[Rfam]
Pyrrolysine insertion sequence mttB: a 100-nucleotide RNA.
It is one of the family's seed sequences.
It is annotated as a cis-regulatory element.
The family's consensus secondary structure was predicted with CMfinder.
RNA sequence: AUGACGGAUUCCAAAUUACCCGAUGCUCAAUCGGGUUACGAAAAAGGAUAUACCGUCACCCUUGCGGCUCAUUCGGGAGCAAAUCUGAUUUAUGAAUCUG
Numbered sequence: 001a002u003g004a005c006g007g008a009u010u011c012c013a014a015a016u017u018a019c020c021c022g023a024u025g026c027u028c029a030a031u032c033g034g035g036u037u038a039c040g041a042a043a044a045a046g047g048a049u050a051u052a053c054c055g056u057c058a059c060c061c062u063u064g065c066g067g068c069u070c071a072u073u074c075g076g077g078a079g080c081a082a083a084u085c086u087g088a089u090u091u092a093u094g095a096a097u098c099u100g
Stems, first nucleotide, its partner, number of pairs: 003012001025032001033062003077098001